Shown here is an 87-nucleotide RNA sequence from Paenibacillus naphthalenovorans, a member of the family "Group II catalytic intron D1-D4-1". Its family is annotated with Group II intron splicing in the Gene Ontology. On this family, see Bonen and Vogel, Trends Genet 2001: "The ins and outs of group II introns". Lineage of the source: Bacteria > Bacillota > Bacilli > Paenibacillaceae > Paenibacillus.
[Rfam]
RNA sequence: UAACCAGAGUCGGAAGGCUCUGCUGAAUCCUCAGGAGUCAGCAGAGGCCAUAGUACGCAAGUACGGGACGCCGGACAGCGGAAGGGC
Number, nucleotide and partner (000 for none) at each position: 001u025002a024003a000004c000005c022006a021007g020008a019009g018010u017011c016012g000013g000014a000015a000016g011017g010018c009019u008020c007021u006022g005023c000024u002025g001026a000027a000028u000029c000030c000031u000032c000033a000034g000035g000036a000037g000038u045039c044040a000041g000042c000043a000044g039045a038046g000047g087048c086049c085050a000051u000052a000053g000054u000055a000056c080057g079058c078059a000060a000061g076062u075063a000064c000065g000066g000067g000068a000069c000070g000071c000072c000073g000074g000075a062076c061077a000078g058079c057080g056081g000082a000083a000084g000085g049086g048087c047